[Rfam]
RNA sequence: CACAUGCGAUGACGUGAAAGGUUGCUGAUUUUACAAUGAAAUCAGGUAAUUUUUGCAGAGUAUGUCCUGUUAUAAAACAGGGCGA
Dot-bracket structure: .............(((.((((...((((((((.....))))))))....)))))))......((((((((......)))))))).
Numbered sequence: 001c002a003c004a005u006g007c008g009a010u011g012a013c014g015u016g017a018a019a020g021g022u023u024g025c026u027g028a029u030u031u032u033a034c035a036a037u038g039a040a041a042u043c044a045g046g047u048a049a050u051u052u053u054u055g056c057a058g059a060g061u062a063u064g065u066c067c068u069g070u071u072a073u074a075a076a077a078c079a080g081g082g083c084g085a
Stems, first nucleotide, its partner, number of pairs: 014056003018053004025045008063084008
A member of the RNA family "S10-Clostridia ribosomal protein leader" from Sedimentibacter hydroxybenzoicus, 85 nucleotides long. On this family, see Eckert and Weinberg, BMC Microbiol 2020: "Discovery of 20 novel ribosomal leader candidates in bacteria and archaea". The match comes from Rfam's covariance-model search (41 bits). It is annotated as a cis-regulatory leader.